[Rfam]
RNA sequence: UGCGACGGGUUGACUCAAUCAGAUAACUUCGGUUAUUCCGCUCAAGCGGCUGGUGAUUGGUUAAUUAGCAGAGGCAGAGUGAUCUUCACUAACUACCGGAUGUAGUUGUCGGACAAAGACUUUUGUGGAGAA
Numbered sequence: 001u002g003c004g005a006c007g008g009g010u011u012g013a014c015u016c017a018a019u020c021a022g023a024u025a026a027c028u029u030c031g032g033u034u035a036u037u038c039c040g041c042u043c044a045a046g047c048g049g050c051u052g053g054u055g056a057u058u059g060g061u062u063a064a065u066u067a068g069c070a071g072a073g074g075c076a077g078a079g080u081g082a083u084c085u086u087c088a089c090u091a092a093c094u095a096c097c098g099g100a101u102g103u104a105g106u107u108g109u110c111g112g113a114c115a116a117a118g119a120c121u122u123u124u125g126u127g128g129a130g131a132a
Stems, first nucleotide, its partner, number of pairs: 017058005022037006038049004073110004092106005121132004

A member of the RNA family "Enterococcus sRNA 68 (Lacto-3 RNA)" from Enterococcus rivorum, 132 nucleotides long. The match comes from Rfam's covariance-model search (74 bits). The family's RNA type in Rfam is small RNA. The literature on the family includes a 2015 paper in RNA by Innocenti et al., "Whole-genome mapping of 5' RNA ends in bacteria by tagged sequencing: a comprehensive view in Enterococcus faecalis".